The family of this 236-nucleotide RNA sequence from Methylacidimicrobium cyclopophantes is "HNH endonuclease-associated RNA and ORF (HEARO) RNA". NCBI's taxonomy places the organism under Bacteria, Pseudomonadati, Verrucomicrobiota, Methylacidimicrobium. For this family Rfam cites "Exceptional structured noncoding RNAs revealed by bacterial metagenome analysis" (Weinberg et al., Nature, 2009).

RNA sequence: GUCAACCACUCCCCCUGAGCCUUCGGGCUACAGGCGGAGCUUGUGAGAGCAGGCUCCUGGUUGACCAGGCUCAGUGAUCGGAGACAUCCGUGAACUAUGUUGGUGAGGUCACGACACCCCGGGAUGCGUUGCCAGUUUCGGGCUACUGUCGAGGCGGAUUAAAAGCAAGCUGGGAGUAGUGCAAGCGGUGUCCGUCUCCCAACAAGCCUCAUCAACUUUGCCGAGGCGAACUUUAC
Number, nucleotide and partner (000 for none) at each position: 001g065002u064003c063004a062005a061006c060007c059008a058009c000010u039011c000012c036013c000014c034015c033016u032017g031018a000019g000020c000021c000022u000023u000024c000025g000026g000027g000028c000029u000030a000031c017032a016033g015034g014035c000036g012037g000038a000039g010040c053041u052042u051043g050044u000045g000046a000047g000048a000049g000050c043051a042052g041053g040054c000055u000056c000057c000058u008059g007060g006061u005062u004063g003064a002065c001066c000067a000068g222069g221070c220071u000072c000073a096074g095075u094076g000077a000078u000079c000080g000081g000082a000083g000084a000085c000086a000087u000088c000089c000090g000091u000092g000093a000094a075095c074096u073097a000098u000099g216100u215101u214102g213103g212104u211105g210106a209107g208108g207109u206110c000111a000112c000113g000114a149115c148116a000117c000118c142119c141120c140121g139122g138123g137124a136125u135126g232127c000128g000129u229130u228131g227132c226133c225134a000135g125136u124137u123138u122139c121140g120141g119142g118143c000144u000145a000146c000147u000148g115149u114150c000151g198152a197153g196154g195155c194156g193157g192158a191159u190160u000161a000162a000163a189164a000165g186166c185167a000168a000169g182170c181171u000172g000173g000174g000175a000176g000177u000178a000179g000180u000181g170182c169183a000184a000185g166186c165187g000188g000189u163190g159191u158192c157193c156194g155195u154196c153197u152198c151199c000200c000201a000202a000203c000204a000205a000206g109207c108208c107209u106210c105211a104212u103213c102214a101215a100216c099217u000218u000219u000220g070221c069222c068223g000224a000225g133226g132227c131228g130229a129230a000231c000232u126233u000234u000235a000236c000

Record summary:
A search with the family's covariance model found it, with a score of 114 bits.